[Rfam]
Rfam assigns this 348-nucleotide RNA sequence from Lachnoclostridium sp. An14 to the family "Bacterial RNase P class A".
The source organism's lineage runs through Bacteria, Bacillati, Bacillota, Lachnospiraceae and Lachnoclostridium.
The family's RNA type in Rfam is ribozyme.
RNA sequence: UGAGUAAGACAGAUGGUCGCUGCUGCAGAGACGAAAGGCUGCAGGAGAGGAAAGUCCGGGCUUCACAGGGCAGGAUGCCAGAUAACGUCUGGUGGAGGCGACUCCAAGGACAGUGCAACAGAAAUAAACCGCAGGGACAUUCCCUGUAAGGGUGGAAAGGCAGUGUAAGAGACUACCGCCUUCCUGGUAACAGGAAGGGCAUAUGUAAACCCCAUCCGAAGCAAGGCCGAACAGGAAGCACAGGCGGCCCGUCCGCUUCCGGGUAGGCCGCUGGAGCCUGGCGGUGACGCCAGGCCUAGAUAGAUGACCAUCCAACGACAUAACCCGGCUUAUCGUCUUGCUCAUGCC
Dot-bracket structure: ((((((((((((((((((.((.((((((..........)))))).))....[[[.[[[[[((((...[[[[.((((((((((.....)))))(((((....)))).)((...(((((...........(((((((((...)))))))..)).......((.(((.......))).))(((((((((....)))))))).)...)))..)))))))))))))...((((.....((((((...(((.]]]]))).)))))).....))))......((((((((....))))))))..........)))))))...........]]]]]]]].).))))))))))....